[Rfam]
RNA sequence: ACUCGGGCACGAUCUCCGCGCUUUGCUUCGCGUCGCGCGACGAGAGCACGGAGAACCGACCCGUAGUUCAAUCCUGAGGGA
Numbered sequence: 001a002c003u004c005g006g007g008c009a010c011g012a013u014c015u016c017c018g019c020g021c022u023u024u025g026c027u028u029c030g031c032g033u034c035g036c037g038c039g040a041c042g043a044g045a046g047c048a049c050g051g052a053g054a055a056c057c058g059a060c061c062c063g064u065a066g067u068u069c070a071a072u073c074c075u076g077a078g079g080g081a
Stems, first nucleotide, its partner, number of pairs: 001067003004063004013054006020047005
RNA: L31-Corynebacteriaceae ribosomal protein leader